U7 small nuclear RNA: a 60-nucleotide RNA from Prolemur simus.
RNA sequence: AAGACAAAAAGCUCUUUUAGAAUUUGUCUAGCAGGUUUUCUGGUCUUUACAGGAGCCCCA
Dot-bracket structure: .................................((((..((.((....)).))))))...
It scores 50 bits against the family's covariance model.